[Rfam]
RNA sequence: UGGUGCCCAAUGGUGUAGCUUUGGAUACAAGGGAAUUUGUGAGGGAAGUGGCAUGUAAGUGUUCGGCAGAAGAAGAAGAAAAAAAAAUGUGAAAGUCAGUUUGACAAAGUUUGCCGCAGAAGCCUGCCGUGCCGUUCUUAAAGGUACAGUAGCGCCUAAGUAUGGGACAAGAAUUAAGUAAGCAUAAAGUUUUUGUUAAGCAAUUAAAAGAAGCUUUAAAGACACGGGGAGUAAAAGUUAAGAGUAAUGAUCUUUUUAAGUUUUUUGACCUUAUUAAGGACACCUGUCCGU
Numbered sequence: 001u002g003g004u005g006c007c008c009a010a011u012g013g014u015g016u017a018g019c020u021u022u023g024g025a026u027a028c029a030a031g032g033g034a035a036u037u038u039g040u041g042a043g044g045g046a047a048g049u050g051g052c053a054u055g056u057a058a059g060u061g062u063u064c065g066g067c068a069g070a071a072g073a074a075g076a077a078g079a080a081a082a083a084a085a086a087a088u089g090u091g092a093a094a095g096u097c098a099g100u101u102u103g104a105c106a107a108a109g110u111u112u113g114c115c116g117c118a119g120a121a122g123c124c125u126g127c128c129g130u131g132c133c134g135u136u137c138u139u140a141a142a143g144g145u146a147c148a149g150u151a152g153c154g155c156c157u158a159a160g161u162a163u164g165g166g167a168c169a170a171g172a173a174u175u176a177a178g179u180a181a182g183c184a185u186a187a188a189g190u191u192u193u194u195g196u197u198a199a200g201c202a203a204u205u206a207a208a209a210g211a212a213g214c215u216u217u218a219a220a221g222a223c224a225c226g227g228g229g230a231g232u233a234a235a236a237g238u239u240a241a242g243a244g245u246a247a248u249g250a251u252c253u254u255u256u257u258a259a260g261u262u263u264u265u266u267g268a269c270c271u272u273a274u275u276a277a278g279g280a281c282a283c284c285u286g287u288c289c290g291u
Stems, first nucleotide, its partner, number of pairs: 006033003013028003038053003096143001100141002109136001112134001115131003119127001150170001152168001155166004175218003178214002225267008235253001237251004276291001278289004
Shown here is a 291-nucleotide RNA from Sciurus vulgaris, a member of the family "Mason-Pfizer monkey virus packaging signal". Rfam 15.1 lists 2,921 matches to the family in 53 species. It scores 157 bits against the family's covariance model. Rfam links the family to the GO term viral genome packaging.